[Rfam]
RNA sequence: ACCGCUAAGCCAUCCCUCUAGCCCUAAAACUAAUUUUAAAAUUAAAAAAAAAGUAGGUAAGGGCUGGAGGGAUGGCUUAGCGGU
Numbered sequence: 001a002c003c004g005c006u007a008a009g010c011c012a013u014c015c016c017u018c019u020a021g022c023c024c025u026a027a028a029a030c031u032a033a034u035u036u037u038a039a040a041a042u043u044a045a046a047a048a049a050a051a052a053g054u055a056g057g058u059a060a061g062g063g064c065u066g067g068a069g070g071g072a073u074g075g076c077u078u079a080g081c082g083g084u
Base pairs, nucleotide, nucleotide: 002083003082004081005080006079007078008077009076010075011074012073013072014071015070016069017068018067019066020065021064022063023062024061
Record summary:
The family of this 84-nucleotide sequence from Jaculus jaculus is "mir-3473 microRNA precursor family". The base pairs follow the family's consensus structure, which was predicted with RNAalifold. The family has 5 seed sequences and 1,094 matches in Rfam 15.1. Its family is annotated with cellular response to mechanical stimulus, miRNA-mediated post-transcriptional gene silencing and RISC complex in the Gene Ontology.